[Rfam]
The record is a 47-nucleotide RNA sequence from Streptomyces sp. SID3343, which matches "L31-Actinobacteria ribosomal protein leader" in Rfam.
RNA sequence: UCGGUCCCGGUUCACGUGAUGCCCAUUCGGGUGUACGACCCGGUGCC
Numbered sequence: 001u002c003g004g005u006c007c008c009g010g011u012u013c014a015c016g017u018g019a020u021g022c023c024c025a026u027u028c029g030g031g032u033g034u035a036c037g038a039c040c041c042g043g044u045g046c047c
Stems, first nucleotide, its partner, number of pairs: 003047003007043004015037004022030002
Pairs were carried over by alignment from the consensus structure, which is taken from published work.